RNA: FasX small RNA
RNA sequence: GUAAAUAAAGACUUAACGUCACUAGUUUAUAAGAGUCAAUCCCCAAUUCAAUCAAAAUAUUGUUUUCUCUCUCUCUCCAUAAACAAAUAGUAUUUUUGAUCUGACUCUUCUGAAACUAAUGAUUAAUUCAGUUGUCUUUGUUUGGAUAACAUAUUGACUGAUUUUUACAUCAGUAAAAAAACUCGGAAUCCCAUCCGAGUUUUUU
Numbered sequence: 001g002u003a004a005a006u007a008a009a010g011a012c013u014u015a016a017c018g019u020c021a022c023u024a025g026u027u028u029a030u031a032a033g034a035g036u037c038a039a040u041c042c043c044c045a046a047u048u049c050a051a052u053c054a055a056a057a058u059a060u061u062g063u064u065u066u067c068u069c070u071c072u073c074u075c076u077c078c079a080u081a082a083a084c085a086a087a088u089a090g091u092a093u094u095u096u097u098g099a100u101c102u103g104a105c106u107c108u109u110c111u112g113a114a115a116c117u118a119a120u121g122a123u124u125a126a127u128u129c130a131g132u133u134g135u136c137u138u139u140g141u142u143u144g145g146a147u148a149a150c151a152u153a154u155u156g157a158c159u160g161a162u163u164u165u166u167a168c169a170u171c172a173g174u175a176a177a178a179a180a181a182c183u184c185g186g187a188a189u190c191c192c193a194u195c196c197g198a199g200u201u202u203u204u205u
Stems, first nucleotide, its partner, number of pairs: 002144011015128002018123004025116004029111001031109008051100007058092008157174006178203009